[Rfam]
RNA sequence: AGCCUAAACCCGUCAAGAUUCUCUUGCCGGGCAUGGCGAAGGCAGCCGCUACAGUGCAAAAAACUCCUCGUCCGGAGUCACUGUAGCGGUCGUACCCUCGAAAGAGGGCACGGGUCAGGCUGAAAGGUCUGAUC
Numbered sequence: 001a002g003c004c005u006a007a008a009c010c011c012g013u014c015a016a017g018a019u020u021c022u023c024u025u026g027c028c029g030g031g032c033a034u035g036g037c038g039a040a041g042g043c044a045g046c047c048g049c050u051a052c053a054g055u056g057c058a059a060a061a062a063a064c065u066c067c068u069c070g071u072c073c074g075g076a077g078u079c080a081c082u083g084u085a086g087c088g089g090u091c092g093u094a095c096c097c098u099c100g101a102a103a104g105a106g107g108g109c110a111c112g113g114g115u116c117a118g119g120c121u122g123a124a125a126g127g128u129c130u131g132a133u134c
Base pairs, nucleotide, nucleotide: 002037003036004035009031010030011029012028014026015025016024017023046089047088048087049086050085051084052083053082054081055080056079063078064077065076066075091112092111093110095108096107097106098105113134114133115132116131117130118129119128120127121126
Dot-bracket structure: .(((....((((.((((.....)))).))))...)))........(((((((((((......((((........))))))))))))))).(((.((((......)))).)))(((((((((....)))))))))